The family of this 96-nucleotide RNA is "Group II catalytic intron D1-D4-1". The literature on the family includes a 2001 paper in Trends Genet by Bonen and Vogel, "The ins and outs of group II introns". Gene Ontology term of the family: Group II intron splicing. Rfam's curators write: Group II introns are found in rRNA, tRNA and mRNA of organelles in fungi, plants and protists, and also in mRNA in bacteria. The base pairs follow the family's consensus structure.
RNA sequence: CGCUUUCUGUGGUAACACAGCGAGUGAUCAAACAGAAGUCAGCCGAGGCCAUAGUAGCCCAACGCCAGGAGUAAUGCCCUGGACAUGGUGAAGGGC
Number, nucleotide and partner (000 for none) at each position: 001c026002g025003c000004u023005u022006u000007c020008u019009g018010u017011g016012g000013u000014a000015a000016c011017a010018c009019a008020g007021c000022g005023a004024g000025u002026g001027a000028u000029c000030a000031a000032a000033c000034a000035g000036a000037a000038g000039u046040c045041a000042g000043c000044c000045g040046a039047g000048g096049c095050c094051a000052u000053a000054g000055u000056a000057g089058c088059c087060c000061a000062a000063c000064g000065c000066c000067a080068g079069g078070a000071g000072u000073a000074a000075u000076g000077c000078c069079c068080u067081g000082g000083a000084c000085a000086u000087g059088g058089u057090g000091a000092a000093g000094g050095g049096c048